Annotation: The record is a 71-nucleotide sequence from Aedes aegypti, which matches "mir-3 microRNA precursor family" in Rfam. Its Rfam clan is "mir-3 clan". For this family Rfam cites "The small RNA profile during Drosophila melanogaster development" (Aravin et al., Dev Cell, 2003). The base pairs follow the family's consensus structure, which was predicted with RNAalifold.
RNA sequence: UUAUGCGUCAAACUCCGUUCAGUUGGUGGAGUCAUUUUCCAAGUCAUCACUGGGCAUAGUUUGUCGCAUAA
Numbered sequence: 001u002u003a004u005g006c007g008u009c010a011a012a013c014u015c016c017g018u019u020c021a022g023u024u025g026g027u028g029g030a031g032u033c034a035u036u037u038u039c040c041a042a043g044u045c046a047u048c049a050c051u052g053g054g055c056a057u058a059g060u061u062u063g064u065c066g067c068a069u070a071a
Stems, first nucleotide, its partner, number of pairs: 004068004009063005017055002020052004